RNA sequence: UCGUUUCCAGAGCCAGGACCUGUUCCAGUUUUUUUCCGCGGUAAUAACGCGAGCAAGUCCUAUCACCGGGAGAAAAACUGGAGUAGGUCCUGCGACUCUA
Numbered sequence: 001u002c003g004u005u006u007c008c009a010g011a012g013c014c015a016g017g018a019c020c021u022g023u024u025c026c027a028g029u030u031u032u033u034u035u036c037c038g039c040g041g042u043a044a045u046a047a048c049g050c051g052a053g054c055a056a057g058u059c060c061u062a063u064c065a066c067c068g069g070g071a072g073a074a075a076a077a078c079u080g081g082a083g084u085a086g087g088u089c090c091u092g093c094g095a096c097u098c099u100a
Stems, first nucleotide, its partner, number of pairs: 016090007024082014039068001041066002044063003